[Rfam]
RNA: LOOT RNA
RNA sequence: AGCCUAAACUAGCAAGUAAUUGUUGGCAUGGCGAAAGAAAACCGUUGAAGAUAAAGAACCCAUCAUAUGGGAUUUGUCUUCAACGGCCGUAUCGGGAAACUGGUACGGAAGGCUCCGAGCCUUC
Number, nucleotide and partner (000 for none) at each position: 001a000002g032003c031004c030005u000006a000007a000008a000009c026010u025011a024012g023013c022014a021015a020016g000017u000018a000019a000020u015021u014022g013023u012024u011025g010026g009027c000028a000029u000030g004031g003032c002033g000034a000035a000036a000037g000038a000039a000040a000041a000042c086043c085044g084045u083046u082047g081048a080049a079050g078051a077052u076053a000054a000055a073056g000057a000058a000059c071060c070061c069062a068063u000064c000065a000066u000067a000068u062069g061070g060071g059072a000073u055074u000075u000076g052077u051078c050079u049080u048081c047082a046083a045084c044085g043086g042087c000088c107089g106090u105091a104092u103093c102094g101095g100096g000097a000098a000099a000100c095101u094102g093103g092104u091105a090106c089107g088108g124109a123110a122111g121112g120113c119114u000115c000116c000117g000118a000119g113120c112121c111122u110123u109124c108